[Rfam]
RNA sequence: UCCAUCUUUAUAAAUUGAACUCGUAUAACUGUGAGAAUAUGGCUCACGAGUCUCUACCAGACGACCAUAAAUUGUCUGACUACGAGUGAUCAAACUGAGUUA
Numbered sequence: 001u002c003c004a005u006c007u008u009u010a011u012a013a014a015u016u017g018a019a020c021u022c023g024u025a026u027a028a029c030u031g032u033g034a035g036a037a038u039a040u041g042g043c044u045c046a047c048g049a050g051u052c053u054c055u056a057c058c059a060g061a062c063g064a065c066c067a068u069a070a071a072u073u074g075u076c077u078g079a080c081u082a083c084g085a086g087u088g089a090u091c092a093a094a095c096u097g098a099g100u101u102a
Stems, first nucleotide, its partner, number of pairs: 019087007030048006058078007
RNA: Purine riboswitch aptamer